[Rfam]
RNA sequence: ACUGAAUAGAAGCUUCUUGAAUGUAUAUGCUUAGAAAUAUGGUCUAAGCGUUUCUACCUGGUAACCGUAAAAGACCGGACUACAUGAAGAACGACUGGAAUG
Numbered sequence: 001a002c003u004g005a006a007u008a009g010a011a012g013c014u015u016c017u018u019g020a021a022u023g024u025a026u027a028u029g030c031u032u033a034g035a036a037a038u039a040u041g042g043u044c045u046a047a048g049c050g051u052u053u054c055u056a057c058c059u060g061g062u063a064a065c066c067g068u069a070a071a072a073g074a075c076c077g078g079a080c081u082a083c084a085u086g087a088a089g090a091a092c093g094a095c096u097g098g099a100a101u102g
Stems, first nucleotide, its partner, number of pairs: 018088001021085005029049007058078005
Annotation:
This 102-nucleotide RNA from Sporosarcina pasteurii belongs to the Rfam family "Purine riboswitch aptamer". Its Rfam clan is "Purine riboswitches". It scores 72 bits against the family's covariance model.